[Rfam]
The record is a 52-nucleotide RNA sequence from Iningainema tapete, which matches "Nitrogen stress-induced RNA 1" in Rfam. The literature on the family includes a 2010 paper in J Mol Biol by Ionescu et al., "Heterocyst-specific transcription of NsiR1, a non-coding RNA encoded in a tandem array of direct repeats in cyanobacteria". The source organism's lineage runs through Bacteria, Cyanobacteriota, Nostocales, Scytonemataceae and Iningainema tapete. Pairs were carried over by alignment from the consensus structure.
RNA sequence: UGGUAGAUGCACCCUAAUUGCUGCCCUCAGUCAAUAGCUGGGGGUUUUUUUU
Numbered sequence: 001u002g003g004u005a006g007a008u009g010c011a012c013c014c015u016a017a018u019u020g021c022u023g024c025c026c027u028c029a030g031u032c033a034a035u036a037g038c039u040g041g042g043g044g045u046u047u048u049u050u051u052u
Stems, first nucleotide, its partner, number of pairs: 002013003024044008